A member of the RNA family "Pseudomon-groES RNA" from Azomonas macrocytogenes, 118 nucleotides long. A search with the family's covariance model found it, with a score of 88 bits. By type it is a cis-regulatory element. NCBI's taxonomy places the organism under Bacteria, Pseudomonadati, Pseudomonadales, Pseudomonadaceae, Azomonas.
[Rfam]
RNA sequence: GUAGCGGUCACCGAAAGGUCGCUGUCAAAAAACGACAGUCCGUAAUCACGCGGUUCGCCCUGCGAGCCGCGACCGGCCAGGCCGGAUUUGCCAACCAGCCGAUGGAGUGGCCAUCGGU
Dot-bracket structure: .........(((....))).((((((.......)))))).........(((((((((.....))))))))).((((.....))))............((((((((.....))))))))